This 57-nucleotide sequence belongs to the Rfam family "nhaA-I RNA". Rfam classes the family as a riboswitch. About the family: Acidobacteria, Alphaproteobacteria, Betaproteobacteria and Gammaproteobacteria, Verrucomicrobia, cand. division NC10.
RNA sequence: GGGUGCGUGAUCCGGCGAUCGGAUCGGCAGGUGUCAGCGCUGGUCGGGCCGCCAGCG
Dot-bracket structure: ....((.(((((.........))))))).........(((((((......)))))))